[Rfam]
RNA sequence: GUCCUAAGGUAAUGCUCCAUUGGGAGCUGUUGCCCCUCAGUAAGGAAACUUAUUGAGUGCAGCUGACUAUAUGCUGGAAACUCCGAGUAUCUGGUAGUACUCGUUGAAGAUGCUUUCGGGUUCUUCAACAGUGAAAAUCUAUCCAGUGCGGACAAUCAGCAGGAAACUUUCUAGGACGGAAAGGAUCCUCAGAGGCCAUACGUCGGCCAUCCUUAACUAAUUAACCAAUUAGAUAAACGCGGAGCGUUUAUGGGUGAAGAUAUGGUCCUAGCCCUAUGGCGACAUAGGG
Numbered sequence: 001g002u003c004c005u006a007a008g009g010u011a012a013u014g015c016u017c018c019a020u021u022g023g024g025a026g027c028u029g030u031u032g033c034c035c036c037u038c039a040g041u042a043a044g045g046a047a048a049c050u051u052a053u054u055g056a057g058u059g060c061a062g063c064u065g066a067c068u069a070u071a072u073g074c075u076g077g078a079a080a081c082u083c084c085g086a087g088u089a090u091c092u093g094g095u096a097g098u099a100c101u102c103g104u105u106g107a108a109g110a111u112g113c114u115u116u117c118g119g120g121u122u123c124u125u126c127a128a129c130a131g132u133g134a135a136a137a138u139c140u141a142u143c144c145a146g147u148g149c150g151g152a153c154a155a156u157c158a159g160c161a162g163g164a165a166a167c168u169u170u171c172u173a174g175g176a177c178g179g180a181a182a183g184g185a186u187c188c189u190c191a192g193a194g195g196c197c198a199u200a201c202g203u204c205g206g207c208c209a210u211c212c213u214u215a216a217c218u219a220a221u222u223a224a225c226c227a228a229u230u231a232g233a234u235a236a237a238c239g240c241g242g243a244g245c246g247u248u249u250a251u252g253g254g255u256g257a258a259g260a261u262a263u264g265g266u267c268c269u270a271g272c273c274c275u276a277u278g279g280c281g282a283c284a285u286a287g288g289g
Base pairs, nucleotide, nucleotide: 008034009033010032011031012030013029041052042051043050062207063206064205065204067202072161073160074159075158076157077156082152083151084150085149162188163187167183168182169181170180192268194267195266196265197264198263210254211253212252214250215249216248218246274287275286276285277284278283
Dot-bracket structure: .......((((((...............))))))......(((......))).........[[[[.[....((((((....((((...............................................................))))...))))))((...((((.........))))...))...(.(((((...].]]]]..(((.(((.(...........................).))).)))........)))))).....(((((....)))))..